[Rfam]
RNA sequence: CGAGUAAGACAGGCAAUCGCUUCUAGCCUUGAGCUAGGAGAGGAAAGUCGGGGCUCCACAGGGCAGGGUGCUGGAUAACGUCCAGUCGAGGUGACUUGAAGGAUAGUGCAACAGAGAUAUACCGCCUACUUUGUAGGUAAGGGUGGAAAGGCGAGGUAAGAGCUCACCAGCGUGAUGGCGACUUCACGGCUAUGUAAACCCCACUUGGAGCAAGACCGAAUAGAGAGGCUUUUUGGAGUUGCCCGCUCCGCCUCCGGGUGCGUCGCUUGAACCUAUCGGCAACGGUAGGUCUAGAUAGAUGAUUGCCCACGACAGGACCCCGCUUACGGCUUAUCUCGUAAC
Dot-bracket structure: ((((..((.(.(((((((.((((((((.....))))))))....[[[.[[[[[((((...[[[[.((((((((((.....)))))(((((....)))).)((...(((((...........((((((((...))))))..)).......((.(((.......))).)).((((((.(....).))))).)..)))..)))))))))))))...(((........(((((.....(((((.]]]])))))))))).......)))......((((((((....))))))))..........)))))))..........]]]]]]]]...).))..))))....
This 342-nucleotide sequence from Clostridium vincentii belongs to the Rfam family "Bacterial RNase P class A". The family's RNA type in Rfam is ribozyme. Taxonomically the source falls in Clostridium (Bacteria, Bacillati, Bacillota, Clostridiaceae).